This 432-nucleotide part of an RNA from Peptoclostridium acidaminophilum belongs to the Rfam family "Bacterial large subunit ribosomal RNA".
Pairs were carried over by alignment from the consensus structure, which is taken from published work.
For this family Rfam cites "Crystal structure of the ribosome at 5.5 A resolution" (Yusupov et al., Science, 2001).
Taxonomically the source falls in Peptoclostridium acidaminophilum (Bacteria, Bacillati, Clostridia, Peptoclostridium).
[Rfam]
RNA sequence: CUCCCCGAAAUAGCUUUAGGGCUAGCCUCGGACGUAGAGACAUGGAGGUAGAGCACUGAAUGCCCUAGGGGCCCUAUGGGUUACCGAAGGCUAUCAAACUCCGAAUGCCAUGAACUUUUAUCCGGGAGUCAGUCUGUGGGUGAUAAGGUCCAUAGACAAGAGGGCAACAGCCCAGACCAUCAGCUAAGGUCCCAAAGUGUGGAUUAAGUGGAAAAGGAUGUGGGAUUGCACAGACAACCAGGAUGUUGGCUUAGAAGCAGCCACUCAUUCAAAGAGUGCGUAAUAGCUCACUGGUCGAGUGAUCCUGCGCCGAAAUAUUCUCGGGGCUAAAAUCCACCACCGAAGCUAUGGAUCCGAAAGGAUGGUAGGGGAGCGUUGUAUAAGGGGCGAAGCUGUACCGAAAGGAGCAGUGGACUUUAUACAAGUGAGAAU
Numbered sequence: 001c002u003c004c005c006c007g008a009a010a011u012a013g014c015u016u017u018a019g020g021g022c023u024a025g026c027c028u029c030g031g032a033c034g035u036a037g038a039g040a041c042a043u044g045g046a047g048g049u050a051g052a053g054c055a056c057u058g059a060a061u062g063c064c065c066u067a068g069g070g071g072c073c074c075u076a077u078g079g080g081u082u083a084c085c086g087a088a089g090g091c092u093a094u095c096a097a098a099c100u101c102c103g104a105a106u107g108c109c110a111u112g113a114a115c116u117u118u119u120a121u122c123c124g125g126g127a128g129u130c131a132g133u134c135u136g137u138g139g140g141u142g143a144u145a146a147g148g149u150c151c152a153u154a155g156a157c158a159a160g161a162g163g164g165c166a167a168c169a170g171c172c173c174a175g176a177c178c179a180u181c182a183g184c185u186a187a188g189g190u191c192c193c194a195a196a197g198u199g200u201g202g203a204u205u206a207a208g209u210g211g212a213a214a215a216g217g218a219u220g221u222g223g224g225a226u227u228g229c230a231c232a233g234a235c236a237a238c239c240a241g242g243a244u245g246u247u248g249g250c251u252u253a254g255a256a257g258c259a260g261c262c263a264c265u266c267a268u269u270c271a272a273a274g275a276g277u278g279c280g281u282a283a284u285a286g287c288u289c290a291c292u293g294g295u296c297g298a299g300u301g302a303u304c305c306u307g308c309g310c311c312g313a314a315a316u317a318u319u320c321u322c323g324g325g326g327c328u329a330a331a332a333u334c335c336a337c338c339a340c341c342g343a344a345g346c347u348a349u350g351g352a353u354c355c356g357a358a359a360g361g362a363u364g365g366u367a368g369g370g371g372a373g374c375g376u377u378g379u380a381u382a383a384g385g386g387g388c389g390a391a392g393c394u395g396u397a398c399c400g401a402a403a404g405g406a407g408c409a410g411u412g413g414a415c416u417u418u419a420u421a422c423a424a425g426u427g428a429g430a431a432u
Stems, first nucleotide, its partner, number of pairs: 001373006011024005026128001027126006036119001037116001041112005051102001052100002057096003062091003068085002070082005132157010162173003177351004182347003188341003197338001199337006216311002220308010237295005243268003248262003269273001274289001278287002352363004374427001376424010392411005398405002